[Rfam]
The family of this 166-nucleotide sequence from Phascolarctobacterium succinatutens is "Lysine riboswitch aptamer".

RNA sequence: CAUUAAGAUAGAGGCGCGGAAAGCAUGAGUAGGUUGUGGAGCGGGAGCUGAGAAGCAUCACAAAAGGGCUAACGCCGAAGUGCAAUGGCAGCCGUGUCGUUGUGCUGGGCCGUCAGUGAAAGCUGCCGGACUGUCGCUGCAUCUGCAGCGGAGGGCUAUCUCGGCU
Numbered sequence: 001c002a003u004u005a006a007g008a009u010a011g012a013g014g015c016g017c018g019g020a021a022a023g024c025a026u027g028a029g030u031a032g033g034u035u036g037u038g039g040a041g042c043g044g045g046a047g048c049u050g051a052g053a054a055g056c057a058u059c060a061c062a063a064a065a066g067g068g069c070u071a072a073c074g075c076c077g078a079a080g081u082g083c084a085a086u087g088g089c090a091g092c093c094g095u096g097u098c099g100u101u102g103u104g105c106u107g108g109g110c111c112g113u114c115a116g117u118g119a120a121a122g123c124u125g126c127c128g129g130a131c132u133g134u135c136g137c138u139g140c141a142u143c144u145g146c147a148g149c150g151g152a153g154g155g156c157u158a159u160c161u162c163g164g165c166u
Stems, first nucleotide, its partner, number of pairs: 006161006016075003022070003032061001079106012107132002110129003114125004134151007